The record is a 37-nucleotide RNA sequence, which matches "abiF RNA" in Rfam.
Actinobacteria, Bacteroidetes, Clostridia, Proteobacteria, one Clostridia phage.
[Rfam]
RNA sequence: CCUGCCAAACCUCUUAACAAUGCUCAAAUUGGCAGGU
Numbered sequence: 001c002c003u004g005c006c007a008a009a010c011c012u013c014u015u016a017a018c019a020a021u022g023c024u025c026a027a028a029u030u031g032g033c034a035g036g037u
Stems, first nucleotide, its partner, number of pairs: 001036006008024001010022001
Dot-bracket structure: ((((((.(.(...........).)......)))))).

Record summary:
Rfam 15.1 lists 282 matches to the family in 274 species.